[Rfam]
RNA sequence: AGUCUGUGGGUCUUGGCACUGGAAGAAUUCACAGAUAUGUAAAAUCGUGGGUCUCUCGGUGCCAAAGUCUACUUCGG
Number, nucleotide and partner (000 for none) at each position: 001a000002g000003u000004c000005u000006g072007u071008g070009g069010g068011u000012c000013u065014u064015g063016g062017c061018a060019c000020u058021g057022g056023a054024a000025g053026a052027a000028u000029u050030c049031a048032c047033a000034g045035a000036u000037a000038u000039g000040u000041a000042a000043a000044a000045u034046c000047g032048u031049g030050g029051g000052u026053c025054u023055c000056u022057c021058g020059g000060u018061g017062c016063c015064a014065a013066a000067g000068u010069c009070u008071a007072c006073u000074u000075c000076g000077g000
The family of this 77-nucleotide RNA sequence from Cimex lectularius is "mir-263 microRNA precursor family". The family has 52 seed sequences and 368 matches in Rfam 15.1. It scores 52 bits against the family's covariance model. The family is grouped with related families in Rfam's "mir-182 clan".